[Rfam]
Description:
A member of the RNA family "FMN riboswitch aptamer (RFN element)" from Bacteroides reticulotermitis, 123 nucleotides long. The match comes from Rfam's covariance-model search (121 bits). On this family, see Gelfand et al., Trends Genet 1999: "A conserved RNA structure element involved in the regulation of bacterial riboflavin synthesis genes". The source organism's lineage runs through Bacteria, Bacteroidota, Bacteroidales, Bacteroides and Bacteroides reticulotermitis.
RNA sequence: AAUAUUCUUCGGGGCAGGGUGUAAUUCCCUACCGGCGGUUAUAGUCCGCGACUCCUCUUUAUGAGGAUUGAUUUGGUGUAAUUCCAAAACCGACAGUUAGAGUCUGGAUGGGAGAAGGAUAAA
Number, nucleotide and partner (000 for none) at each position: 001a000002a000003u121004a120005u119006u118007c117008u116009u115010c114011g000012g000013g000014g000015c000016a000017g029018g028019g027020u000021g000022u000023a000024a000025u000026u000027c019028c018029c017030u000031a103032c102033c092034g091035g049036c048037g047038g046039u000040u000041a000042u000043a000044g090045u089046c038047c037048g036049c035050g000051a000052c000053u067054c066055c000056u000057c000058u000059u000060u000061a000062u000063g000064a000065g000066g054067a053068u000069u000070g000071a000072u088073u087074u086075g085076g084077u000078g000079u000080a000081a000082u000083u000084c076085c075086a074087a073088a072089a045090c044091c034092g033093a000094c106095a105096g104097u000098u000099a000100g000101a000102g032103u031104c096105u095106g094107g000108a000109u000110g000111g000112g000113a000114g010115a009116a008117g007118g006119a005120u004121a003122a000123a000